[Rfam]
RNA sequence: UGGAUGUGUCGGGUAGGCAGUGCAUUGCUAGCUGGCUGUUAGAAUUUCAUCGUUAACAGUUGCUAGUUGCACUCCCCUCUGCUGCAUUCA
Numbered sequence: 001u002g003g004a005u006g007u008g009u010c011g012g013g014u015a016g017g018c019a020g021u022g023c024a025u026u027g028c029u030a031g032c033u034g035g036c037u038g039u040u041a042g043a044a045u046u047u048c049a050u051c052g053u054u055a056a057c058a059g060u061u062g063c064u065a066g067u068u069g070c071a072c073u074c075c076c077c078u079c080u081g082c083u084g085c086a087u088u089c090a
Stems, first nucleotide, its partner, number of pairs: 001090008010081004016075002019073006027067006034060001042054002
A member of the RNA family "mir-449 microRNA precursor family" from Sciurus carolinensis, 90 nucleotides long.
Rfam links the family to the GO terms RISC complex and miRNA-mediated post-transcriptional gene silencing.
A search with the family's covariance model found it, with a score of 64 bits.
Its Rfam clan is "mir-34 clan".
Pairs were carried over by alignment from the consensus structure, which was predicted with RNAalifold.